[Rfam]
Small nucleolar RNA R38: an 82-nucleotide RNA sequence from Pyrenophora seminiperda. The base pairs follow the family's consensus structure, which was predicted with PFOLD. Rfam classes the family as a C/D-box small nucleolar RNA. Rfam describes the family as follows. snoR38 is a C/D box small nucleolar RNA conserved across yeast, human, Arabidopsis and rice. A search with the family's covariance model found it, with a score of 46 bits.
RNA sequence: GCGCAACAUGAUGUGGAAUGUAUAUCAUUCAGUUAUCCCUGUCUGAAAACUAUUGUUGAGAACUUACUAUUCUGAUUUGCUU
Numbered sequence: 001g002c003g004c005a006a007c008a009u010g011a012u013g014u015g016g017a018a019u020g021u022a023u024a025u026c027a028u029u030c031a032g033u034u035a036u037c038c039c040u041g042u043c044u045g046a047a048a049a050c051u052a053u054u055g056u057u058g059a060g061a062a063c064u065u066a067c068u069a070u071u072c073u074g075a076u077u078u079g080c081u082u
Base pairs, nucleotide, nucleotide: 001082003080004079005078006077